[Rfam]
RNA: Small nucleolar RNA Z159/U59
Organism: Sesamum indicum
RNA sequence: GCCUCUGAGGAUGAAUGUAAAAUAAAAACUUUCGUUCUUCUGAGAAUUCCGUGCGGAAGAAUUUUGGAGACCUGAACUGAAGAGGC
Numbered sequence: 001g002c003c004u005c006u007g008a009g010g011a012u013g014a015a016u017g018u019a020a021a022a023u024a025a026a027a028a029c030u031u032u033c034g035u036u037c038u039u040c041u042g043a044g045a046a047u048u049c050c051g052u053g054c055g056g057a058a059g060a061a062u063u064u065u066g067g068a069g070a071c072c073u074g075a076a077c078u079g080a081a082g083a084g085g086c
Stems, first nucleotide, its partner, number of pairs: 003084004